[Rfam]
RNA sequence: GCUGGGCGGAAGCUCUCCGAAGAGGCCACGUGCUGGGUGUCUGUCACCCUUGUUGCGCCUCUGGGAAGGUCUGAGAGAAGGGCCGAGCAUCACCCUAGCAGGGUGCCGCCUCCUGGAGGUGGGUGAGUCCCCAGCGAUACGGGUCCCGGCGAAGUCCGAUAUUGGGCAGGAGAAGCUGGAAACGGGGGAACUCCGCCCCCCUCCCGCGGAUGCCUCCGUGGCUCGCUUGGGAUUUGGGAAUGACUCACGGCCAGCAAUCUUGAGUACAAUGGGAAGAGGUGAAGCAUAAGCGAACAGCGGCUUCAUAACCCAAUUCAGACUAGUCUCCAUCCAGC
Numbered sequence: 001g002c003u004g005g006g007c008g009g010a011a012g013c014u015c016u017c018c019g020a021a022g023a024g025g026c027c028a029c030g031u032g033c034u035g036g037g038u039g040u041c042u043g044u045c046a047c048c049c050u051u052g053u054u055g056c057g058c059c060u061c062u063g064g065g066a067a068g069g070u071c072u073g074a075g076a077g078a079a080g081g082g083c084c085g086a087g088c089a090u091c092a093c094c095c096u097a098g099c100a101g102g103g104u105g106c107c108g109c110c111u112c113c114u115g116g117a118g119g120u121g122g123g124u125g126a127g128u129c130c131c132c133a134g135c136g137a138u139a140c141g142g143g144u145c146c147c148g149g150c151g152a153a154g155u156c157c158g159a160u161a162u163u164g165g166g167c168a169g170g171a172g173a174a175g176c177u178g179g180a181a182a183c184g185g186g187g188g189a190a191c192u193c194c195g196c197c198c199c200c201c202u203c204c205c206g207c208g209g210a211u212g213c214c215u216c217c218g219u220g221g222c223u224c225g226c227u228u229g230g231g232a233u234u235u236g237g238g239a240a241u242g243a244c245u246c247a248c249g250g251c252c253a254g255c256a257a258u259c260u261u262g263a264g265u266a267c268a269a270u271g272g273g274a275a276g277a278g279g280u281g282a283a284g285c286a287u288a289a290g291c292g293a294a295c296a297g298c299g300g301c302u303u304c305a306u307a308a309c310c311c312a313a314u315u316c317a318g319a320c321u322a323g324u325c326u327c328c329a330u331c332c333a334g335c
Stems, first nucleotide, its partner, number of pairs: 001335004008328003013278004017273002021062005035049005071318005081252004091105005106122006123248007143233007279306007

The record is a 335-nucleotide RNA sequence from Podarcis muralis, which matches "Nuclear RNase P" in Rfam. By type it is a ribozyme.